[Rfam]
RNA sequence: AAGGCCCAAUCUCUUGGGUUCGGUGUCUGGAUCCAAUUUACUAGGGUCCUAUGUCAGGACCCGAUUGUCUUGAGUCCAAUAUCAGGACCCAAGCUUAAUGGAUCUU
Number, nucleotide and partner (000 for none) at each position: 001a106002a105003g104004g103005c000006c101007c100008a099009a000010u000011c000012u000013c093014u092015u091016g090017g089018g088019u087020u086021c085022g000023g083024u000025g000026u000027c000028u078029g077030g076031a075032u074033c000034c072035a071036a070037u000038u000039u000040a000041c000042u064043a000044g062045g061046g060047u059048c058049c057050u000051a000052u000053g000054u000055c000056a000057g049058g048059a047060c046061c045062c044063g000064a042065u000066u000067g000068u000069c000070u036071u035072g034073a000074g032075u031076c030077c029078a028079a000080u000081a000082u000083c023084a000085g021086g020087a019088c018089c017090c016091a015092a014093g013094c000095u000096u000097a000098a000099u008100g007101g006102a000103u004104c003105u002106u001